[Rfam]
RNA sequence: GUAUUCACUAACUGUAAGUCGCUCUGGAUAAGAGCGUCUGCUAAAUGACAAAAU
Numbered sequence: 001g002u003a004u005u006c007a008c009u010a011a012c013u014g015u016a017a018g019u020c021g022c023u024c025u026g027g028a029u030a031a032g033a034g035c036g037u038c039u040g041c042u043a044a045a046u047g048a049c050a051a052a053a054u
Base pairs, nucleotide, nucleotide: 013043014041015040016039020036021035022034023033024032025031

A member of the RNA family "UnaL2 LINE 3' element" from Coregonus sp. 'balchen', 54 nucleotides long. Rfam's curators write: The eel long interspersed element (LINE) UnaL2 and its partner short interspersed element (SINE) share a conserved 3' tail containing a stem-loop that is critical for their retrotransposition. Presumably, the first step of retrotransposition is the recognition of their 3' tails by UnaL2-encoded reverse transcriptase. The solution structure of a 17-nucleotide RNA derived from the 3' tail of UnaL2 was determined by NMR. The family's RNA type in Rfam is cis-regulatory element. Its family is annotated with transposition, RNA-mediated in the Gene Ontology.